[Rfam]
Source information
Shown here is a 130-nucleotide RNA from Dielma fastidiosa, a member of the family "Molybdenum/Tungsten riboswitch aptamer (Moco RNA motif)".
RNA sequence: UUAAUAAUUGAUCUCCGAGCCAUUCAAUCCUAAAGACCCCCACGGAUGUCUGGCCUAAGCAUCAGCUUAAGGGCUUUGCUGGAAACAGCAAAACCUUCCAUCUUUGAAAAGGAGCAGUCAUUUUAAAGAC
Numbered sequence: 001u002u003a004a005u006a007a008u009u010g011a012u013c014u015c016c017g018a019g020c021c022a023u024u025c026a027a028u029c030c031u032a033a034a035g036a037c038c039c040c041c042a043c044g045g046a047u048g049u050c051u052g053g054c055c056u057a058a059g060c061a062u063c064a065g066c067u068u069a070a071g072g073g074c075u076u077u078g079c080u081g082g083a084a085a086c087a088g089c090a091a092a093a094c095c096u097u098c099c100a101u102c103u104u105u106g107a108a109a110a111g112g113a114g115c116a117g118u119c120a121u122u123u124u125a126a127a128g129a130c
Stems, first nucleotide, its partner, number of pairs: 003124002006121001013114004019054004025048002028046003035040001057068004071096003075092007097107002
The family's consensus secondary structure is taken from published work. Lineage of the source: Bacteria > Erysipelotrichia > Erysipelotrichales > Erysipelotrichaceae > Dielma. Its family is annotated with regulation of gene expression, molybdenum ion binding and tungstate binding in the Gene Ontology. On this family, see Regulski et al., Mol Microbiol 2008: "in molybdenum cofactor and tungsten cofactor metabolism".